[Rfam]
RNA sequence: GUUCUAUUGUGACGAACUAAGAAUAAAAUUCACAUGUCAGACUUUAGAAAUUUUUCAAAAGUCAAUGAGAAUGAUAAUUCUUCACUGAGCAGAAU
Numbered sequence: 001g002u003u004c005u006a007u008u009g010u011g012a013c014g015a016a017c018u019a020a021g022a023a024u025a026a027a028a029u030u031c032a033c034a035u036g037u038c039a040g041a042c043u044u045u046a047g048a049a050a051u052u053u054u055u056c057a058a059a060a061g062u063c064a065a066u067g068a069g070a071a072u073g074a075u076a077a078u079u080c081u082u083c084a085c086u087g088a089g090c091a092g093a094a095u
Stems, first nucleotide, its partner, number of pairs: 001095005007089001050062003
RNA: Small nucleolar RNA R64/Z200 family
Organism: Arachis hypogaea